[Rfam]
RNA: Ribosomal protein L10 leader
RNA sequence: AAAAACGAAUCAGAACUGCCGAAGACAGUAGGUGCCGCAAGGCAUAAGGAGAAAACGCCUACCGAGGAAUAUAAGAUAAUCAUACGAUGACUUAUAAUAGCCUCUCUGUCUUUGAUAGAGAGGCUUUCUUGAUGAUACC
Numbered sequence: 001a002a003a004a005a006c007g008a009a010u011c012a013g014a015a016c017u018g019c020c021g022a023a024g025a026c027a028g029u030a031g032g033u034g035c036c037g038c039a040a041g042g043c044a045u046a047a048g049g050a051g052a053a054a055a056c057g058c059c060u061a062c063c064g065a066g067g068a069a070u071a072u073a074a075g076a077u078a079a080u081c082a083u084a085c086g087a088u089g090a091c092u093u094a095u096a097a098u099a100g101c102c103u104c105u106c107u108g109u110c111u112u113u114g115a116u117a118g119a120g121a122g123g124c125u126u127u128c129u130u131g132a133u134g135a136u137a138c139c
Stems, first nucleotide, its partner, number of pairs: 028062006034043003100124010